Annotation
Shown here is a 322-nucleotide RNA from Nitrosomonas eutropha, a member of the family "Nitrosomonas sRNA psRNA6". It is one of the family's seed sequences.
[Rfam]
RNA sequence: UUUGAUCUGUUUUUUGAUCCAUUUGGUCUGGCAUUGAAUCACGUUCCAUCAUCAGGCUCGGCGGAUAGUUGCCGGGUUUAUCCGUAUCAAGACACCCGGUCAAGACAGUUGAAGCUACUAACAGGGUGGCGACAGUAAGUAUGAGUUUCAUUUUUUAGUCUCCUAUAAGAAAAAUAUAUUGACAAUAUAACUCUUCUAGCUGGUUUGACUUAUUGCCUCCCUUCUCAGGAGACAGUUAUUUAAUAACAAAUAUUUUAUUUAUUGUCAAUAUUUUUUAAUUGUCUCACUUAAUAAAAUUAUAAAAUAAUCUUUAUGUUAUAAA
Number, nucleotide and partner (000 for none) at each position: 001u000002u000003u000004g309005a308006u307007c124008u123009g122010u121011u120012u000013u000014u000015u117016g116017a000018u000019c000020c000021a066022u065023u064024u000025g062026g000027u061028c060029u000030g058031g057032c056033a049034u048035u000036g046037a045038a044039u043040c000041a000042c000043g039044u038045u037046c036047c000048a034049u033050c000051a000052u000053c000054a000055g000056g032057c031058u030059c000060g028061g027062c025063g000064g023065a022066u021067a000068g000069u103070u102071g101072c099073c098074g097075g096076g093077u092078u091079u090080a000081u000082c000083c000084g000085u000086a000087u000088c000089a000090a079091g078092a077093c076094a000095c000096c075097c074098g073099g072100u000101c071102a070103a069104g000105a000106c000107a000108g115109u114110u000111g000112a000113a000114g109115c108116u016117a015118c000119u000120a011121a010122c009123a008124g007125g288126g287127u286128g000129g285130c000131g283132a282133c281134a280135g000136u000137a279138a000139g166140u165141a164142u000143g162144a161145g160146u000147u158148u157149c000150a000151u000152u000153u000154u000155u000156u000157a148158g147159u000160c145161u144162c143163c000164u141165a140166u139167a000168a000169g276170a275171a274172a273173a272174a271175u270176a000177u000178a000179u268180u267181g266182a265183c264184a263185a258186u257187a256188u000189a254190a253191c000192u232193c231194u230195u229196c228197u227198a225199g224200c000201u000202g221203g220204u000205u000206u000207g217208a000209c215210u000211u000212a000213u000214u000215g209216c000217c207218u000219c000220c203221c202222u000223u000224c199225u198226c000227a197228g196229g195230a194231g193232a192233c000234a000235g000236u000237u252238a251239u250240u249241u248242a000243a000244u000245a000246a000247c000248a241249a240250a239251u238252a237253u190254u189255u000256u187257a186258u185259u000260u000261a000262u000263u184264g183265u182266c181267a180268a179269u000270a175271u174272u173273u172274u171275u170276u169277a000278a000279u137280u134281g133282u132283c131284u000285c129286a127287c126288u125289u000290a000291a000292u000293a000294a000295a000296a000297u000298u000299a000300u000301a000302a000303a000304a000305u000306a000307a006308u005309c004310u000311u000312u000313a000314u000315g000316u000317u000318a000319u000320a000321a000322a000
The source organism's lineage runs through Bacteria, Pseudomonadota, Betaproteobacteria, Nitrosomonadaceae and Nitrosomonas eutropha.